[Rfam]
RNA: Streptomyces RNA 5676
Organism: Streptomyces adustus
RNA sequence: AGAUGAGAGAUUCACCCUCACCCACAGGGGACUGUGGGUGACAUCGGGCCGAGGCCUCCCCAGCUUCGACCUGGUCGUGCCCUCGCGCACACACCCGGGGCCCCGGCCCCGGAUUUCCUCACCGAUCGGA
Dot-bracket structure: ...((((.((.......((((((((((....)))))))))).((((((.((((((.......)))))).)))))).((((......))))....(((((((....)))))))...))))))((....)).